Shown here is a 600-nucleotide part of an RNA from Vermiphilus pyriformis, a member of the family "Bacterial large subunit ribosomal RNA". It scores 2717 bits against the family's covariance model. Lineage of the source: Bacteria > Bacteria candidate phyla > Candidatus Babelota > Vermiphilus > Vermiphilus pyriformis.

[Rfam]
RNA sequence: UUGAAAAGGGCUUUUGGUGGAUGCCUUGGCAUCAAGAGGCGAUGAAGGAGGCGGAAGACUGCCAUAAGCUUCGGGGAGCUGUCAAUCAAGCAAUGAUCCGAAGAUGUCCGAAUGGGGAAACCCUUCUUGGCAAACCCAAGAAAUCUUUAUCUGAAUAUAUAGGGUAAAGAGGCGAACGGCAUGAACUGAAACAUCUAAGUAGUGCCAGGAAUAUAAAACAACGUGAUUCCCUGAGUAGUGGUGAGCGAAAUGGGAAGAGCCUAAAUUAUUGUUACGUGAUAGCCUGCAAGCGUUGUAACAAUAGCGUAGUGGGAUGUAAUGUUUGAGGAUUGCAGUCCUCGACUUAAGACUUUUUACUCUAGUUGAACGCUCUGGGAUGGGCGACUAAAGAAGGUGACAGUCCUGUAAACUAAAGACUAAAAAGAUUAAGAUUAUUCUCCCGAGUACCAUAGAGCACGUGAAAUUCUGUGGGAAUCUGUCCGGACCAUCGGAUAAGGCUAAAUACUCCUUGAUGACCGAUAGUGAACAAGUACCGUGAGGGAAAGGUGAAAAGAACCCCGGGAGGGGAGUGAAAUAGAAACUGAAACCAAUUGUCUAUAA
Numbered sequence: 001u002u003g004a005a006a007a008g009g010g011c012u013u014u015u016g017g018u019g020g021a022u023g024c025c026u027u028g029g030c031a032u033c034a035a036g037a038g039g040c041g042a043u044g045a046a047g048g049a050g051g052c053g054g055a056a057g058a059c060u061g062c063c064a065u066a067a068g069c070u071u072c073g074g075g076g077a078g079c080u081g082u083c084a085a086u087c088a089a090g091c092a093a094u095g096a097u098c099c100g101a102a103g104a105u106g107u108c109c110g111a112a113u114g115g116g117g118a119a120a121c122c123c124u125u126c127u128u129g130g131c132a133a134a135c136c137c138a139a140g141a142a143a144u145c146u147u148u149a150u151c152u153g154a155a156u157a158u159a160u161a162g163g164g165u166a167a168a169g170a171g172g173c174g175a176a177c178g179g180c181a182u183g184a185a186c187u188g189a190a191a192c193a194u195c196u197a198a199g200u201a202g203u204g205c206c207a208g209g210a211a212u213a214u215a216a217a218a219c220a221a222c223g224u225g226a227u228u229c230c231c232u233g234a235g236u237a238g239u240g241g242u243g244a245g246c247g248a249a250a251u252g253g254g255a256a257g258a259g260c261c262u263a264a265a266u267u268a269u270u271g272u273u274a275c276g277u278g279a280u281a282g283c284c285u286g287c288a289a290g291c292g293u294u295g296u297a298a299c300a301a302u303a304g305c306g307u308a309g310u311g312g313g314a315u316g317u318a319a320u321g322u323u324u325g326a327g328g329a330u331u332g333c334a335g336u337c338c339u340c341g342a343c344u345u346a347a348g349a350c351u352u353u354u355u356a357c358u359c360u361a362g363u364u365g366a367a368c369g370c371u372c373u374g375g376g377a378u379g380g381g382c383g384a385c386u387a388a389a390g391a392a393g394g395u396g397a398c399a400g401u402c403c404u405g406u407a408a409a410c411u412a413a414a415g416a417c418u419a420a421a422a423a424g425a426u427u428a429a430g431a432u433u434a435u436u437c438u439c440c441c442g443a444g445u446a447c448c449a450u451a452g453a454g455c456a457c458g459u460g461a462a463a464u465u466c467u468g469u470g471g472g473a474a475u476c477u478g479u480c481c482g483g484a485c486c487a488u489c490g491g492a493u494a495a496g497g498c499u500a501a502a503u504a505c506u507c508c509u510u511g512a513u514g515a516c517c518g519a520u521a522g523u524g525a526a527c528a529a530g531u532a533c534c535g536u537g538a539g540g541g542a543a544a545g546g547u548g549a550a551a552a553g554a555a556c557c558c559c560g561g562g563a564g565g566g567g568a569g570u571g572a573a574a575u576a577g578a579a580a581c582u583g584a585a586a587c588c589a590a591u592u593g594u595c596u597a598u599a600a
Base pairs, nucleotide, nucleotide: 008596009595010594011593014590015589016588017587023581024546025545028517029516030514031513032512033511034510035509036508037506038505039173040172047109048108049107050063051062052061069103070102071101072100073099074098075097078091079090080089114123115122116121124142125141126140127139128138129137130136144170145169146168147167148166149165150164151163152162177208178206179205180204181203182202188195189194218224219223227502228255229254230253231252238246239245258499259498260497261496266304267303268302269301270300271299272298273297274296275295276294311441312440313439316435317434318433319432320431348426350424351423352422353421354420355419356418358416359415360414362410363409364408368383369382370381371380372379386390392404393403394402447471448470449469450468451467452466453465454464478493479492480491481490482489533540534539556567557566558565559564